Background:
The family of this 600-nucleotide part of an RNA is "Bacterial small subunit ribosomal RNA". Gene Ontology terms of the family: structural constituent of ribosome and ribosome.
RNA sequence: AGAUGGUCUUCCAAAUAAGCAGUGAAGCAUGUUGUUUAAUUAGAUGAUCCACUAAAAAUCUUACCUAUCUUUUGUUAUUCUUUUUACAGGCGUUGCAUGGCUGUGUUCAGUUCUUGUUGUGAAAUAUUUAGUUAAGUCUUAUAAAGAACGCAACCCCCUUAUAUAAUUUUUACUUAUAUCUAUCAAAUAAAUAUUCCGUAGAUAUUAAAAGGGAUUAACACAAGUCCUCAUGACCCUUAUGAGUAGGGCUAUAGACGUGCCACAAAAGUUUAUACAAAAAGUGGCAAAAAAAAAUAAAGAGCUAAUCUUUAAAUUAAACUUUAGUACAGAUGAUAUUCUGAAACUCGAAUAUCUUAAGUUGGAAUUGCUAGUAAUCGUGAAUUAUUAUGUUACGGUGAAAUUUUUUCUGGAAGGUGUACUAAUUGCCCGUCAAGGGCUGAAAGUGAUUGGUUUUGGUGAAUUUUAAAGAUUUUUUGAAAUAAAGUAGCGAUUUUUAUAUUCAUAUACUUUUCUUUCUUUCUUUCUUUUCUUUUUCCCAUAUCACCUUUCACUAUUAGUUCUAAGUCGUAACUGGUUGGUGUAGGGGAACCUGUACCAGAA
Numbered sequence: 001a002g003a004u005g006g007u008c009u010u011c012c013a014a015a016u017a018a019g020c021a022g023u024g025a026a027g028c029a030u031g032u033u034g035u036u037u038a039a040u041u042a043g044a045u046g047a048u049c050c051a052c053u054a055a056a057a058a059u060c061u062u063a064c065c066u067a068u069c070u071u072u073u074g075u076u077a078u079u080c081u082u083u084u085u086a087c088a089g090g091c092g093u094u095g096c097a098u099g100g101c102u103g104u105g106u107u108c109a110g111u112u113c114u115u116g117u118u119g120u121g122a123a124a125u126a127u128u129u130a131g132u133u134a135a136g137u138c139u140u141a142u143a144a145a146g147a148a149c150g151c152a153a154c155c156c157c158c159u160u161a162u163a164u165a166a167u168u169u170u171u172a173c174u175u176a177u178a179u180c181u182a183u184c185a186a187a188u189a190a191a192u193a194u195u196c197c198g199u200a201g202a203u204a205u206u207a208a209a210a211g212g213g214a215u216u217a218a219c220a221c222a223a224g225u226c227c228u229c230a231u232g233a234c235c236c237u238u239a240u241g242a243g244u245a246g247g248g249c250u251a252u253a254g255a256c257g258u259g260c261c262a263c264a265a266a267a268g269u270u271u272a273u274a275c276a277a278a279a280a281g282u283g284g285c286a287a288a289a290a291a292a293a294a295u296a297a298a299g300a301g302c303u304a305a306u307c308u309u310u311a312a313a314u315u316a317a318a319c320u321u322u323a324g325u326a327c328a329g330a331u332g333a334u335a336u337u338c339u340g341a342a343a344c345u346c347g348a349a350u351a352u353c354u355u356a357a358g359u360u361g362g363a364a365u366u367g368c369u370a371g372u373a374a375u376c377g378u379g380a381a382u383u384a385u386u387a388u389g390u391u392a393c394g395g396u397g398a399a400a401u402u403u404u405u406u407c408u409g410g411a412a413g414g415u416g417u418a419c420u421a422a423u424u425g426c427c428c429g430u431c432a433a434g435g436g437c438u439g440a441a442a443g444u445g446a447u448u449g450g451u452u453u454u455g456g457u458g459a460a461u462u463u464u465a466a467a468g469a470u471u472u473u474u475u476g477a478a479a480u481a482a483a484g485u486a487g488c489g490a491u492u493u494u495u496a497u498a499u500u501c502a503u504a505u506a507c508u509u510u511u512c513u514u515u516c517u518u519u520c521u522u523u524c525u526u527u528u529c530u531u532u533u534u535c536c537c538a539u540a541u542c543a544c545c546u547u548u549c550a551c552u553a554u555u556a557g558u559u560c561u562a563a564g565u566c567g568u569a570a571c572u573g574g575u576u577g578g579u580g581u582a583g584g585g586g587a588a589c590c591u592g593u594a595c596c597a598g599a600a
Stems, first nucleotide, its partner, number of pairs: 001420002003417003007414007015404001019368005024263001027260007034252002040055004064247004069243003078086001089236002092234004098230002100225003103221004110149006116125003128141001130139002155213003160185001166179001171176001188208001190206006267320006279309003284302002290295001327358001332353007374396007423573001425571001428567002433561008443551004449545003575598010